[Rfam]
RNA sequence: ACUGAACAUAAACUCCUAGCCUUGGCGUCUACGUUGUCUCGUUCGCGAACAAUAUGAUGCUCUGGCCGUGGCUUUAAGCCACCAGGGUGCGAGGUAGAAAUGCCUGCAUCUCCCGUAUUUGGAAAGGUGUUAUGGUACAACUCAC
Numbered sequence: 001a002c003u004g005a006a007c008a009u010a011a012a013c014u015c016c017u018a019g020c021c022u023u024g025g026c027g028u029c030u031a032c033g034u035u036g037u038c039u040c041g042u043u044c045g046c047g048a049a050c051a052a053u054a055u056g057a058u059g060c061u062c063u064g065g066c067c068g069u070g071g072c073u074u075u076a077a078g079c080c081a082c083c084a085g086g087g088u089g090c091g092a093g094g095u096a097g098a099a100a101u102g103c104c105u106g107c108a109u110c111u112c113c114c115g116u117a118u119u120u121g122g123a124a125a126g127g128u129g130u131u132a133u134g135g136u137a138c139a140a141c142u143c144a145c
Stems, first nucleotide, its partner, number of pairs: 003139002006136001011131003015127002019066003024061006033053004068082005085111006092105005112122002